[Rfam]
RNA sequence: CACACGUGGGUGAAGGCUUCCUGCUGUGUUGGCAGGCCGCCAUCCGGUGUUUCGGGAAAUGGUUUUCCGAUACGCACGCCCACGGAGGCUUAACCGGAAAAGGAGUAGUAUU
Dot-bracket structure: (.(.((((((....((.......(((......)))....)).......((.((((((((...)))))))).)).....))))))).).........................

Background:
Shown here is a 112-nucleotide sequence from Kordiimonas lacus, a member of the family "rpsB sRNA". It is annotated as a small RNA. The match comes from Rfam's covariance-model search (44 bits).